Nucleotides: 122
Base pairs, nucleotide, nucleotide: 007027008026009025010024011023012021013020014019030083031082032081033080034079035078039077040076041075042074043053044052045051057073058072059071060070061069062068085112086111087110088109089108090107091106092105093104094103095102096101
Number, partner (000 for none) and nucleotide at each position: 001000u002000a003000u004000a005000g006000g007027u008026a009025c010024a011023g012021a013020c014019a015000a016000u017000g018000c019014u020013g021012u022000a023011c024010u025009g026008u027007a028000u029000a030083c031082a032081c033080c034079u035078g036000u037000a038000a039077g040076u041075u042074g043053a044052u045051a046000c047000u048000c049000u050000g051045u052044a053043u054000u055000a056000a057073g058072c059071g060070u061069a062068c063000u064000g065000u066000a067000a068062g069061u070060a071059c072058g073057c074042c075041g076040a077039c078035c079034a080033g081032g082031u083030g084000g085112a086111a087110g088109a089108g090107g091106c092105a093104a094103c095102c096101a097000u098000c099000c100000g101096u102095g103094g104093u105092u106091g107090c108089c109088u110087c111086u112085u113000u114000u115000u116000u117000u118000g119000a120000c121000c122000c
Source information: The family of this 122-nucleotide sequence is "DUF3800-I RNA". Rfam describes the family as follows. Actinobacteria, Firmicutes, Fusobacteria, Proteobacteria (1 example), Tenericutes (2 examples).